RNA sequence: CGGAUAUCAGGCGAUGGGGCUCGCCUUCGACCGCCGAUCCGGCUGAUAGCUCCUGCACUCGA
Numbered sequence: 001c002g003g004a005u006a007u008c009a010g011g012c013g014a015u016g017g018g019g020c021u022c023g024c025c026u027u028c029g030a031c032c033g034c035c036g037a038u039c040c041g042g043c044u045g046a047u048a049g050c051u052c053c054u055g056c057a058c059u060c061g062a
Stems, first nucleotide, its partner, number of pairs: 010025004016053006033043003

The record is a 62-nucleotide sequence from Microlunatus kandeliicorticis, which matches "Fluoride riboswitch aptamer (crcB RNA motif)" in Rfam.
The match comes from Rfam's covariance-model search (42 bits).
The family has 289 seed sequences and 2,293 matches in Rfam 15.1.
Pairs were carried over by alignment from the consensus structure, which is taken from published work.